RNA sequence: AAUGCGGCCUUCUCUUUGGGGAGUAGCCAGCUUCCGGAUCAUCCGGAAGAGCCCGUGUCAACAUUCUCGGCAGCAGCAGCUGCCGUGGCGCGGGUAGCCAAUCGGUAGGCGAGACCAUAGACGUUUCCUGCGGCCAGGCUGGGCGCGCAGGCGCGUCCAUGGACUUUUCGCCCGGCCAAGGAAUC
Numbered sequence: 001a002a003u004g005c006g007g008c009c010u011u012c013u014c015u016u017u018g019g020g021g022a023g024u025a026g027c028c029a030g031c032u033u034c035c036g037g038a039u040c041a042u043c044c045g046g047a048a049g050a051g052c053c054c055g056u057g058u059c060a061a062c063a064u065u066c067u068c069g070g071c072a073g074c075a076g077c078a079g080c081u082g083c084c085g086u087g088g089c090g091c092g093g094g095u096a097g098c099c100a101a102u103c104g105g106u107a108g109g110c111g112a113g114a115c116c117a118u119a120g121a122c123g124u125u126u127c128c129u130g131c132g133g134c135c136a137g138g139c140u141g142g143g144c145g146c147g148c149a150g151g152c153g154c155g156u157c158c159a160u161g162g163a164c165u166u167u168u169c170g171c172c173c174g175g176c177c178a179a180g181g182a183a184u185c
Stems, first nucleotide, its partner, number of pairs: 031049005051095010068085007100184001102182001
Source information
Manganese Mn2+ riboswitch aptamer (yybP-ykoY): a 185-nucleotide sequence from Herbaspirillum seropedicae. Lineage of the source: Bacteria > Pseudomonadati > Betaproteobacteria > Burkholderiales > Herbaspirillum seropedicae. Rfam links the family to the GO term manganese ion binding. A reference for the family is Price et al. (2015), "Mn(2+)-sensing mechanisms of yybP-ykoY orphan riboswitches", Mol Cell. Rfam describes the family as follows. This RNA was originally discovered in E. coli during a large scale screen and was named SraF. The family was later found to exist upstream of related families of protein genes in many bacteria, including the the yybP and ykoK genes in B. subtilis. The match comes from Rfam's covariance-model search (47 bits).